This 107-nucleotide RNA sequence from Paenibacillus sambharensis belongs to the Rfam family "Guanidine-I riboswitch aptamer". This family represents a conserved RNA structure found upstream of the ykkC and yxkD genes in Bacillus subtilis and related genes in other bacteria. The function of this family is unclear although it has been suggested that it may function to switch on efflux pumps and detoxification systems in response to harmful environmental molecules. It scores 85 bits against the family's covariance model. Rfam 15.1 lists 1,509 matches to the family in 1,281 species.

RNA sequence: AUCAUUGUUUUCUAGGGUUCCGCGGCACAAGCUAAUGGCCGGACAGGUCCGAGAGAAGACGCACAGCUUCACCGCUGUGUCCACGGAGGGAUAAAAGCCCGGGAGGA
Numbered sequence: 001a002u003c004a005u006u007g008u009u010u011u012c013u014a015g016g017g018u019u020c021c022g023c024g025g026c027a028c029a030a031g032c033u034a035a036u037g038g039c040c041g042g043a044c045a046g047g048u049c050c051g052a053g054a055g056a057a058g059a060c061g062c063a064c065a066g067c068u069u070c071a072c073c074g075c076u077g078u079g080u081c082c083a084c085g086g087a088g089g090g091a092u093a094a095a096a097g098c099c100c101g102g103g104a105g106g107a
Base pairs, nucleotide, nucleotide: 007060008059009058010057011056012055015050016049020047021046022044023041024040025039026038028037029036061080062079063078064077065076066075067074082102084105088100089099090098